[Rfam]
RNA sequence: UCCUCGGUAGCUCAGCGGCAGAGCAAUCGGCUGUUAACCGAUCGGUCGUAGGUUCGAAUCCUACCCGGGGAG
Numbered sequence: 001u002c003c004u005c006g007g008u009a010g011c012u013c014a015g016c017g018g019c020a021g022a023g024c025a026a027u028c029g030g031c032u033g034u035u036a037a038c039c040g041a042u043c044g045g046u047c048g049u050a051g052g053u054u055c056g057a058a059u060c061c062u063a064c065c066c067g068g069g070g071a072g
Base pairs, nucleotide, nucleotide: 001071002070003069004068005067006066007065010024011023012022013021026042027041028040029039030038048064049063050062051061052060
Shown here is a 72-nucleotide sequence from Fodinibius salinus, a member of the family "tRNA". Rfam describes the family as follows. Transfer RNA (tRNA) molecules are approximately 80 nucleotides in length. Lineage of the source: Bacteria > Pseudomonadati > Balneolales > Balneolaceae > Fodinibius. The family's consensus secondary structure is taken from published work.